[Rfam]
RNA sequence: UAGCCCUGCGGAGUGCCUAGGUCCGCCGCAUCUCCUGGGUCCGUGGGGUUCGGCCGGCGGGUGGACGAUCACGGGUGGCCUCCCCGUCCGUCCACCGCCGGCCACCUC
Numbered sequence: 001u002a003g004c005c006c007u008g009c010g011g012a013g014u015g016c017c018u019a020g021g022u023c024c025g026c027c028g029c030a031u032c033u034c035c036u037g038g039g040u041c042c043g044u045g046g047g048g049u050u051c052g053g054c055c056g057g058c059g060g061g062u063g064g065a066c067g068a069u070c071a072c073g074g075g076u077g078g079c080c081u082c083c084c085c086g087u088c089c090g091u092c093c094a095c096c097g098c099c100g101g102c103c104a105c106c107u108c
Base pairs, nucleotide, nucleotide: 003049004048005047006046007045008044009043010042016039017038018037019036020035021034052103053102054101055100056099057098058097059096060095062094

Notes:
The family of this 108-nucleotide sequence from Azorhizobium caulinodans is "EcpR1". Rfam's curators put it in the seed alignment. By type it is a small RNA.